Overview
Shown here is a 35-nucleotide sequence, a member of the family "DUF805b RNA".
RNA sequence: AAAGGGUAAGCUGAAAACCUAAAAAAGAGUAAGCA
Numbered sequence: 001a002a003a004g005g006g007u008a009a010g011c012u013g014a015a016a017a018c019c020u021a022a023a024a025a026a027g028a029g030u031a032a033g034c035a
Stems, first nucleotide, its partner, number of pairs: 003020003010034003